[Rfam]
mir-143 microRNA precursor family: an 84-nucleotide RNA from Acipenser ruthenus. On this family, see Lagos-Quintana et al., Curr Biol 2002: "Identification of tissue-specific microRNAs from mouse". Taxonomically the source falls in Acipenser (Eukaryota, Metazoa, Teleostomi, Actinopterygii). The family has 30 seed sequences and 657 matches in Rfam 15.1.
RNA sequence: CAGCCCCCCCCCCACGGUGCAGUGCUGCAUCUCUGGUCAGUUGGGAGUCUGAGAUGAAGCACUGUAGCUCGGGAAGGGGGCGCU
Numbered sequence: 001c002a003g004c005c006c007c008c009c010c011c012c013c014a015c016g017g018u019g020c021a022g023u024g025c026u027g028c029a030u031c032u033c034u035g036g037u038c039a040g041u042u043g044g045g046a047g048u049c050u051g052a053g054a055u056g057a058a059g060c061a062c063u064g065u066a067g068c069u070c071g072g073g074a075a076g077g078g079g080g081c082g083c084u
Stems, first nucleotide, its partner, number of pairs: 011073003016068001018066009028056006035049002037046002